[Rfam]
Rfam assigns this 114-nucleotide RNA sequence from Sporosarcina luteola to the family "SAM riboswitch aptamer (S box leader)". Rfam 15.1 lists 9,625 matches to the family in 4,158 species. Taxonomically the source falls in Sporosarcina (Bacteria, Bacillati, Caryophanales, Caryophanaceae).
RNA sequence: CUCUUAUCCCGAGCUGGCGGAGGGACAGGCCCUAUGAAGCCCGGCAACCUGCGUGGUAAUCCCACGAGAAGGUGCCAAACCUGGAGCAAGGUUGAAUUCCUUGGACGAUAAGAG
Numbered sequence: 001c002u003c004u005u006a007u008c009c010c011g012a013g014c015u016g017g018c019g020g021a022g023g024g025a026c027a028g029g030c031c032c033u034a035u036g037a038a039g040c041c042c043g044g045c046a047a048c049c050u051g052c053g054u055g056g057u058a059a060u061c062c063c064a065c066g067a068g069a070a071g072g073u074g075c076c077a078a079a080c081c082u083g084g085a086g087c088a089a090g091g092u093u094g095a096a097u098u099c100c101u102u103g104g105a106c107g108a109u110a111a112g113a114g
Stems, first nucleotide, its partner, number of pairs: 001114008013042001016041003022032003026086001029081001043076004048072002050068001052066004087103005